RNA: Small nucleolar RNA Z247
RNA sequence: CCAAUCGAGGAGGACGAGUUCAUCUCUUUCAUCGUCACCGGGCUUGAUAUGGAAUAUCAGCCCAUCAUCUCUGCACUCGACGUCCGCACCGAGCCCAUCACUGUCGAUGCACUCUUCUCGAUGGUGGCAAACUUCGAUC
Numbered sequence: 001c002c003a004a005u006c007g008a009g010g011a012g013g014a015c016g017a018g019u020u021c022a023u024c025u026c027u028u029u030c031a032u033c034g035u036c037a038c039c040g041g042g043c044u045u046g047a048u049a050u051g052g053a054a055u056a057u058c059a060g061c062c063c064a065u066c067a068u069c070u071c072u073g074c075a076c077u078c079g080a081c082g083u084c085c086g087c088a089c090c091g092a093g094c095c096c097a098u099c100a101c102u103g104u105c106g107a108u109g110c111a112c113u114c115u116u117c118u119c120g121a122u123g124g125u126g127g128c129a130a131a132c133u134u135c136g137a138u139c
Stems, first nucleotide, its partner, number of pairs: 004138005088108001090106003